[Rfam]
RNA sequence: UGACGGCUCCCCGGUUAGCGAGGUAUAGAGUUCCUACGUGGCAAGGACCGUAGGAACUUCAUACCGUGCUCUUUGGGAGAGUCUCA
Numbered sequence: 001u002g003a004c005g006g007c008u009c010c011c012c013g014g015u016u017a018g019c020g021a022g023g024u025a026u027a028g029a030g031u032u033c034c035u036a037c038g039u040g041g042c043a044a045g046g047a048c049c050g051u052a053g054g055a056a057c058u059u060c061a062u063a064c065c066g067u068g069c070u071c072u073u074u075g076g077g078a079g080a081g082u083c084u085c086a
Stems, first nucleotide, its partner, number of pairs: 012075003017070004022065005028059010
The family of this 86-nucleotide sequence from Homarus americanus is "mir-276 microRNA precursor family". For this family Rfam cites "Identification of microRNAs expressed in two mosquito vectors, Aedes albopictus and Culex quinquefasciatus" (Skalsky et al., BMC Genomics, 2010). NCBI's taxonomy places the organism under Eukaryota, Communostraca, Eumalacostraca, Nephropoidea, Homarus. A search with the family's covariance model found it, with a score of 64 bits.